[Rfam]
RNA sequence: UCGAACAUUGAUUGUCCAAACGCAAUUCUUUCUGGUUAUAAAUGAAGAGAACUGUGUAUGGACGUCAGUGCUCGU
Number, nucleotide and partner (000 for none) at each position: 001u000002c074003g073004a072005a000006c070007a069008u000009u067010g066011a065012u064013u000014g063015u062016c061017c060018a059019a000020a000021c056022g055023c054024a053025a000026u051027u050028c049029u048030u047031u000032c000033u000034g000035g000036u000037u000038a000039u000040a000041a000042a000043u000044g000045a000046a000047g030048a029049g028050a027051a026052c000053u024054g023055u022056g021057u000058a000059u018060g017061g016062a015063c014064g012065u011066c010067a009068g000069u007070g006071c000072u004073c003074g002075u000
A member of the RNA family "mir-219 microRNA precursor family" from Xenoturbella bocki, 75 nucleotides long. Rfam's curators put it in the seed alignment. A reference for the family is Lim et al. (2003), "Vertebrate microRNA genes", Science. Its family is annotated with miRNA-mediated post-transcriptional gene silencing and RISC complex in the Gene Ontology. Pairs were carried over by alignment from the consensus structure, which was predicted with RNAalifold.